The family of this 43-nucleotide sequence from Chimaeribacter arupi is "nuoG RNA". The base pairs follow the family's consensus structure, which is taken from published work. It is annotated as a cis-regulatory element. Lineage of the source: Bacteria > Pseudomonadati > Pseudomonadota > Yersiniaceae > Chimaeribacter.
RNA sequence: GAAUUUUUGAUUAACGCCCGUGCCUGCACGGGCCUCGUGGAAG
Numbered sequence: 001g002a003a004u005u006u007u008u009g010a011u012u013a014a015c016g017c018c019c020g021u022g023c024c025u026g027c028a029c030g031g032g033c034c035u036c037g038u039g040g041a042a043g
Base pairs, nucleotide, nucleotide: 016033017032018031019030020029021028022027